Rfam assigns this 113-nucleotide sequence from Fulvimarina pelagi to the family "TPP riboswitch aptamer (THI element)". Vitamin B(1) in its active form thiamin pyrophosphate (TPP) is an essential coenzyme that is synthesised by coupling of pyrimidine and thiazole moieties in bacteria. The previously detected thiamin-regulatory element, thi box was extended, resulting in a new, highly conserved RNA secondary structure, the THI element, which is widely distributed in eubacteria and also occurs in some archaea. Analysis of operon structures identified a large number of new candidate thiamin-regulated genes, mostly transporters, in various prokaryotic organisms. The family's consensus secondary structure is taken from published work. A search with the family's covariance model found it, with a score of 71 bits.
[Rfam]
RNA sequence: UCUUCGUCCAAGGGGAGUUCCGGCAAGGAACUGAGAGGCUGCUAUACACUGCGCGGCGACCCGUAGAACCUGAUCCAGUUCGUACUGGCGUAGGGAUGGAAGAACGCUGCGGA
Numbered sequence: 001u002c003u004u005c006g007u008c009c010a011a012g013g014g015g016a017g018u019u020c021c022g023g024c025a026a027g028g029a030a031c032u033g034a035g036a037g038g039c040u041g042c043u044a045u046a047c048a049c050u051g052c053g054c055g056g057c058g059a060c061c062c063g064u065a066g067a068a069c070c071u072g073a074u075c076c077a078g079u080u081c082g083u084a085c086u087g088g089c090g091u092a093g094g095g096a097u098g099g100a101a102g103a104a105c106g107c108u109g110c111g112g113a
Base pairs, nucleotide, nucleotide: 007100008099009098010097012062013061014060017031018030019029020028021027038057039056040055041054042053069094070093071092072091075088076087077086078085